This 73-nucleotide RNA from Lonchura striata belongs to the Rfam family "tRNA". It scores 60 bits against the family's covariance model. By type it is a transfer RNA. NCBI's taxonomy places the organism under Eukaryota, Bilateria, Deuterostomia, Craniata, Lonchura. The family's consensus secondary structure is taken from published work.

RNA sequence: GGGCCAGUGGCGCAAUGGACAACGCGCCUGACUACGGAUCAGGAGAUUGCAGGUUAGACUCCUGCCUGGCUCA
Numbered sequence: 001g002g003g004c005c006a007g008u009g010g011c012g013c014a015a016u017g018g019a020c021a022a023c024g025c026g027c028c029u030g031a032c033u034a035c036g037g038a039u040c041a042g043g044a045g046a047u048u049g050c051a052g053g054u055u056a057g058a059c060u061c062c063u064g065c066c067u068g069g070c071u072c073a
Stems, first nucleotide, its partner, number of pairs: 001072007010025003027043005049065005